[Rfam]
RNA sequence: GUUAGCAUACAAGCGCCAGAACUUGGUCUUGCGCGGGGGAGAUGUGUAAGUCAUUAAGUGCCUGAUAUAGGCGAGGCUGGCACAAAUCACGGCAGACGUAAGUUGACGAGGUGGAGGUGUUCGAAAUGUUCGGCGGGGACCUCCCGGUGAUGCACCAGAGCCGUAAAUGGAAGCGGAAAAUGGAAGGGCGACCUUUCACACAACGCUUUUGUGGGUGCAAUA
Numbered sequence: 001g002u003u004a005g006c007a008u009a010c011a012a013g014c015g016c017c018a019g020a021a022c023u024u025g026g027u028c029u030u031g032c033g034c035g036g037g038g039g040a041g042a043u044g045u046g047u048a049a050g051u052c053a054u055u056a057a058g059u060g061c062c063u064g065a066u067a068u069a070g071g072c073g074a075g076g077c078u079g080g081c082a083c084a085a086a087u088c089a090c091g092g093c094a095g096a097c098g099u100a101a102g103u104u105g106a107c108g109a110g111g112u113g114g115a116g117g118u119g120u121u122c123g124a125a126a127u128g129u130u131c132g133g134c135g136g137g138g139a140c141c142u143c144c145c146g147g148u149g150a151u152g153c154a155c156c157a158g159a160g161c162c163g164u165a166a167a168u169g170g171a172a173g174c175g176g177a178a179a180a181u182g183g184a185a186g187g188g189c190g191a192c193c194u195u196u197c198a199c200a201c202a203a204c205g206c207u208u209u210u211g212u213g214g215g216u217g218c219a220a221u222a
Base pairs, nucleotide, nucleotide: 020104021103022102023101024100025099113144114143115142116141117140121133122132123131124130145163146162147161148160149156167212168211169210170209171208172207173206181198182197183196184195185194186193187192
Rfam assigns this 222-nucleotide RNA sequence from Paenibacillus monticola to the family "glmS glucosamine-6-phosphate activated ribozyme aptamer". The family's RNA type in Rfam is riboswitch. It scores 66 bits against the family's covariance model. Pairs were carried over by alignment from the consensus structure, which is taken from published work.